A member of the RNA family "Small nucleolar RNA SNORA57" from Sparus aurata, 136 nucleotides long.
The match comes from Rfam's covariance-model search (98 bits).
Lineage of the source: Eukaryota > Chordata > Neoteleostei > Eurypterygia > Sparus.
RNA sequence: CCUCCAUUUCUUGGCAUGCAUGUUUGUUUGGUACUCAUGUGUGUAAUGUACGGAGGAAAAGUGAAUGCAGCGCUAUGUCUUCGGUACCGGUGUGUGUUAUCAUCUGCCGGUUCUAUCCUCAAUCGCUGCUACAUUC
Numbered sequence: 001c002c003u004c005c006a007u008u009u010c011u012u013g014g015c016a017u018g019c020a021u022g023u024u025u026g027u028u029u030g031g032u033a034c035u036c037a038u039g040u041g042u043g044u045a046a047u048g049u050a051c052g053g054a055g056g057a058a059a060a061g062u063g064a065a066u067g068c069a070g071c072g073c074u075a076u077g078u079c080u081u082c083g084g085u086a087c088c089g090g091u092g093u094g095u096g097u098u099a100u101c102a103u104c105u106g107c108c109g110g111u112u113c114u115a116u117c118c119u120c121a122a123u124c125g126c127u128g129c130u131a132c133a134u135u136c
Stems, first nucleotide, its partner, number of pairs: 001056005015043006022036001024033001068128005087110006